[Rfam]
RNA sequence: CUAGCACUCCCAGGUAGGCCAAGGAGUCCUACAGAAAAACCUUAGGUAGAACUACUGGAGGUCUGG
Numbered sequence: 001c002u003a004g005c006a007c008u009c010c011c012a013g014g015u016a017g018g019c020c021a022a023g024g025a026g027u028c029c030u031a032c033a034g035a036a037a038a039a040c041c042u043u044a045g046g047u048a049g050a051a052c053u054a055c056u057g058g059a060g061g062u063c064u065g066g
Base pairs, nucleotide, nucleotide: 001066002065003064004063006062007061008060010058011057014055015054016053017052019045021043022042023041024040026032027031
RNA: MAT2A 3'UTR stem loop E
Organism: Carlito syrichta